[Rfam]
RNA sequence: AAAAGUUAUGAGUCUUCAUUCCCGAUAGGAUUCACUAGCUUGACUUAGUGAAGAUGCCUUGUAACCGAAAAAUGAUAUUGGGGGAAUUUUUACAAUG
Numbered sequence: 001a002a003a004a005g006u007u008a009u010g011a012g013u014c015u016u017c018a019u020u021c022c023c024g025a026u027a028g029g030a031u032u033c034a035c036u037a038g039c040u041u042g043a044c045u046u047a048g049u050g051a052a053g054a055u056g057c058c059u060u061g062u063a064a065c066c067g068a069a070a071a072a073u074g075a076u077a078u079u080g081g082g083g084g085a086a087u088u089u090u091u092a093c094a095a096u097g
Base pairs, nucleotide, nucleotide: 019086020085021084022083023082027059028058029057031052032051033050034049035048036047037046038045065081066080
SAM-III riboswitch aptamer (SMK box): a 97-nucleotide RNA sequence from Secundilactobacillus mixtipabuli. It scores 67 bits against the family's covariance model. NCBI's taxonomy places the organism under Bacteria, Bacillati, Bacilli, Lactobacillales, Secundilactobacillus. On this family, see Wang and Breaker, Biochem Cell Biol 2008: "Riboswitches that sense S-adenosylmethionine and S-adenosylhomocysteine".